[Rfam]
RNA sequence: ACAAUAGCCAUAAUUGGUUAACUCAAGGGUGGUCGGCGCACUCUCGAAAGGGGAUGAUGCCGAUGACAGUUGCAGAAGGAUUGAUGCUCAUGGCGAGUUUUGGGGCGUCAAUCGUUCCCGAUCAUGUCAGAAAAAAACAGCAAAAAAAAAAACCCACCCUUUAGUGAAUGGCUCAUUUAGGGUGGAUUCUAUUCCCAAAUCGUGCCGAUCCCCUUGAAGGGAACCGAGCUAUUGUAUGACUGAAGGUGUGUCAGCACCUUCA
Numbered sequence: 001a002c003a004a005u006a007g008c009c010a011u012a013a014u015u016g017g018u019u020a021a022c023u024c025a026a027g028g029g030u031g032g033u034c035g036g037c038g039c040a041c042u043c044u045c046g047a048a049a050g051g052g053g054a055u056g057a058u059g060c061c062g063a064u065g066a067c068a069g070u071u072g073c074a075g076a077a078g079g080a081u082u083g084a085u086g087c088u089c090a091u092g093g094c095g096a097g098u099u100u101u102g103g104g105g106c107g108u109c110a111a112u113c114g115u116u117c118c119c120g121a122u123c124a125u126g127u128c129a130g131a132a133a134a135a136a137a138c139a140g141c142a143a144a145a146a147a148a149a150a151a152a153c154c155c156a157c158c159c160u161u162u163a164g165u166g167a168a169u170g171g172c173u174c175a176u177u178u179a180g181g182g183u184g185g186a187u188u189c190u191a192u193u194c195c196c197a198a199a200u201c202g203u204g205c206c207g208a209u210c211c212c213c214u215u216g217a218a219g220g221g222a223a224c225c226g227a228g229c230u231a232u233u234g235u236a237u238g239a240c241u242g243a244a245g246g247u248g249u250g251u252c253a254g255c256a257c258c259u260u261c262a
Stems, first nucleotide, its partner, number of pairs: 001235004006230003014208005020203001022164002025161005031154003039056002042054003065128004080091001103119003175190001209222004241262009
RNA: BsrG
Organism: Siminovitchia fortis